[Rfam]
RNA: Selenocysteine insertion sequence 1
Organism: Synaphobranchus kaupii
RNA sequence: CGCACGCCUGUGAAGGCCUCUCACUAAACCAGCACUGGGAUGUGAGGCCUGAUGUCCCUGUGCG
Numbered sequence: 001c002g003c004a005c006g007c008c009u010g011u012g013a014a015g016g017c018c019u020c021u022c023a024c025u026a027a028a029c030c031a032g033c034a035c036u037g038g039g040a041u042g043u044g045a046g047g048c049c050u051g052a053u054g055u056c057c058c059u060g061u062g063c064g
Stems, first nucleotide, its partner, number of pairs: 001064005015049006022042002030037002